The family of this 78-nucleotide RNA from Novosphingobium aromaticivorans is "Makes More Granules Regulator RNA (mmgR)". For this family Rfam cites "Regulation of Polyhydroxybutyrate Accumulation in Sinorhizobium meliloti by the Trans-Encoded Small RNA MmgR" (Lagares et al., J Bacteriol, 2017). Taxonomically the source falls in Novosphingobium aromaticivorans (Bacteria, Pseudomonadati, Pseudomonadota, Novosphingobium). The pairing is the family consensus, mapped onto this sequence. Rfam's curators put it in the seed alignment.

RNA sequence: GGGACGGGCCUUUCAGGCAUCCUCUCCCAAACUUUUCAGGGCCGCCCGGCAACGGUGCGGCCCAUUUUUUUGCGCUUC
Numbered sequence: 001g002g003g004a005c006g007g008g009c010c011u012u013u014c015a016g017g018c019a020u021c022c023u024c025u026c027c028c029a030a031a032c033u034u035u036u037c038a039g040g041g042c043c044g045c046c047c048g049g050c051a052a053c054g055g056u057g058c059g060g061c062c063c064a065u066u067u068u069u070u071u072g073c074g075c076u077u078c
Stems, first nucleotide, its partner, number of pairs: 008018004039063007047055001